[Rfam]
RNA sequence: UGGUGCUUGCUGGCUGUAACAGCAACUCCAUGUGGAACGUCUGCGCAUUUUCCAGUGGAGUAGCUGUUACCUGCAGAGAGUUA
Numbered sequence: 001u002g003g004u005g006c007u008u009g010c011u012g013g014c015u016g017u018a019a020c021a022g023c024a025a026c027u028c029c030a031u032g033u034g035g036a037a038c039g040u041c042u043g044c045g046c047a048u049u050u051u052c053c054a055g056u057g058g059a060g061u062a063g064c065u066g067u068u069a070c071c072u073g074c075a076g077a078g079a080g081u082u083a
Stems, first nucleotide, its partner, number of pairs: 010076003016070008026060006033054003

Shown here is an 83-nucleotide RNA from Electrophorus electricus, a member of the family "mir-194 microRNA precursor family". A reference for the family is Lagos-Quintana et al. (2003), "New microRNAs from mouse and human", RNA. The family's consensus secondary structure was predicted with RNAalifold. A search with the family's covariance model found it, with a score of 83 bits. Taxonomically the source falls in Electrophorus (Eukaryota, Gnathostomata, Teleostei, Ostariophysi).